[Rfam]
RNA sequence: GUGAUGUUUAUGAAGGUCUGCGCUGAAGGCAGCAAGACUGUUAGCGCAGACUGGAUGCCCCCAUCAC
Numbered sequence: 001g002u003g004a005u006g007u008u009u010a011u012g013a014a015g016g017u018c019u020g021c022g023c024u025g026a027a028g029g030c031a032g033c034a035a036g037a038c039u040g041u042u043a044g045c046g047c048a049g050a051c052u053g054g055a056u057g058c059c060c061c062c063a064u065c066a067c
Base pairs, nucleotide, nucleotide: 001067002066003065004064005063015052016051017050018049019048020047021046022045023044024043030040031039032038
Dot-bracket structure: (((((.........((((((((((.....(((.....)))..))))))))))..........)))))